[Rfam]
RNA sequence: CACCAGGUUGAUUCUGCCUGACGUGGACGCUUGCCUUAAAGAUUAAGCCAUGCAAGCCAGCGAAGGUAACGGAGCGGCGAACGGCUCAGUAGGACAGGGUUAUCUGACCACCGAACAGGAUAACCGCGGUAAUCUGUGGCUAAUACGUGUGUGGGUGAGACUCUGCCCUAUCAGCUUGGGGGUACGGUAAGUGCGUACCCUUGCGACGACGGGUAACGGGAAAUCGGGGUUUGAUUCCGGAGAGGGAGCCUGAGAGAUGGCUACCACGUCCAAGGAUGGCAGCAGGCGCGGAAAUUACCCACUUGGAGGACCAGAGGUAGUGACGAGGCGUUUUUAAUGAGAAUAGUGUAAAAAGCUGUUCGAAAGCAACUGGAGGGCAAGUCUGGUGCCAGCAGCCGCGGUAAUUCCAGCUCCAGGAGCGUCUGCGUGUGUUGCUG
Numbered sequence: 001c002a003c004c005a006g007g008u009u010g011a012u013u014c015u016g017c018c019u020g021a022c023g024u025g026g027a028c029g030c031u032u033g034c035c036u037u038a039a040a041g042a043u044u045a046a047g048c049c050a051u052g053c054a055a056g057c058c059a060g061c062g063a064a065g066g067u068a069a070c071g072g073a074g075c076g077g078c079g080a081a082c083g084g085c086u087c088a089g090u091a092g093g094a095c096a097g098g099g100u101u102a103u104c105u106g107a108c109c110a111c112c113g114a115a116c117a118g119g120a121u122a123a124c125c126g127c128g129g130u131a132a133u134c135u136g137u138g139g140c141u142a143a144u145a146c147g148u149g150u151g152u153g154g155g156u157g158a159g160a161c162u163c164u165g166c167c168c169u170a171u172c173a174g175c176u177u178g179g180g181g182g183u184a185c186g187g188u189a190a191g192u193g194c195g196u197a198c199c200c201u202u203g204c205g206a207c208g209a210c211g212g213g214u215a216a217c218g219g220g221a222a223a224u225c226g227g228g229g230u231u232u233g234a235u236u237c238c239g240g241a242g243a244g245g246g247a248g249c250c251u252g253a254g255a256g257a258u259g260g261c262u263a264c265c266a267c268g269u270c271c272a273a274g275g276a277u278g279g280c281a282g283c284a285g286g287c288g289c290g291g292a293a294a295u296u297a298c299c300c301a302c303u304u305g306g307a308g309g310a311c312c313a314g315a316g317g318u319a320g321u322g323a324c325g326a327g328g329c330g331u332u333u334u335u336a337a338u339g340a341g342a343a344u345a346g347u348g349u350a351a352a353a354a355g356c357u358g359u360u361c362g363a364a365a366g367c368a369a370c371u372g373g374a375g376g377g378c379a380a381g382u383c384u385g386g387u388g389c390c391a392g393c394a395g396c397c398g399c400g401g402u403a404a405u406u407c408c409a410g411c412u413c414c415a416g417g418a419g420c421g422u423c424u425g426c427g428u429g430u431g432u433u434g435c436u437g
Stems, first nucleotide, its partner, number of pairs: 004020005022427010033329005040321001041289001047287003051284003056078002060075002065070001085242003095165007103158002108154004114148001118146001124139006167213003174204002179201008217239004221232004244265002247262003267278004295319001297318003303314004341361006370416006383410004392399002
This 437-nucleotide part of an RNA from Gurleya vavrai belongs to the Rfam family "Microsporidia small subunit ribosomal RNA".
Rfam's curators put it in the seed alignment.
The base pairs follow the family's consensus structure, which is taken from published work.
A reference for the family is Yusupov et al. (2001), "Crystal structure of the ribosome at 5.5 A resolution", Science.
Its family is annotated with ribosome and structural constituent of ribosome in the Gene Ontology.
Its Rfam clan is "SSU clan".
Taxonomically the source falls in Gurleya (Eukaryota, Opisthokonta, Fungi, Microsporidia).